A member of the RNA family "6A RNA", 55 nucleotides long. The base pairs follow the family's consensus structure, which is taken from published work.

RNA sequence: AGAUUUGCUUGUAUAGUGGCAAGCAGGAUAAUAAUAAAGAAACACUAUAUUAAGA
Numbered sequence: 001a002g003a004u005u006u007g008c009u010u011g012u013a014u015a016g017u018g019g020c021a022a023g024c025a026g027g028a029u030a031a032u033a034a035u036a037a038a039g040a041a042a043c044a045c046u047a048u049a050u051u052a053a054g055a
Base pairs, nucleotide, nucleotide: 006025007024008023009022010021011020014047015046016045017044
Record summary:
Rfam classes the family as a small RNA. Rfam's curators put it in the seed alignment.